[Rfam]
RNA sequence: AUAAUGAUACUUCCGGGAAAGCUGCCCGGUCUGGAAAGAUGGUGAAAUACCAAUGA
Numbered sequence: 001a002u003a004a005u006g007a008u009a010c011u012u013c014c015g016g017g018a019a020a021g022c023u024g025c026c027c028g029g030u031c032u033g034g035a036a037a038g039a040u041g042g043u044g045a046a047a048u049a050c051c052a053a054u055g056a
Stems, first nucleotide, its partner, number of pairs: 012053001013029004030039003040052003
Annotation
This 56-nucleotide sequence belongs to the Rfam family "pemK RNA". By type it is a cis-regulatory element.